[Rfam]
RNA sequence: UCUGGGGUCACAUGCUUCCUUAUAUUCGCAUAUGAAUCUAUCAGUUAUGGAAUGUAAGGAAGUGUGUGGUUUUGGA
Numbered sequence: 001u002c003u004g005g006g007g008u009c010a011c012a013u014g015c016u017u018c019c020u021u022a023u024a025u026u027c028g029c030a031u032a033u034g035a036a037u038c039u040a041u042c043a044g045u046u047a048u049g050g051a052a053u054g055u056a057a058g059g060a061a062g063u064g065u066g067u068g069g070u071u072u073u074g075g076a
Stems, first nucleotide, its partner, number of pairs: 007070019029049004

Rfam assigns this 76-nucleotide sequence from Synaphobranchus kaupii to the family "mir-1 microRNA precursor family". This family represents the microRNA (miRNA) mir-1 family. miRNAs are transcribed as ~70nt precursors (modelled here) and subsequently processed by the Dicer enzyme to give a ~22nt product. In this case the mature sequence comes from the 3' arm of the precursor. NCBI's taxonomy places the organism under Eukaryota, Bilateria, Chordata, Teleostei, Synaphobranchus. A reference for the family is Lee and Ambros (2001), "An extensive class of small RNAs in Caenorhabditis elegans", Science. Gene Ontology terms of the family: miRNA-mediated post-transcriptional gene silencing and RISC complex.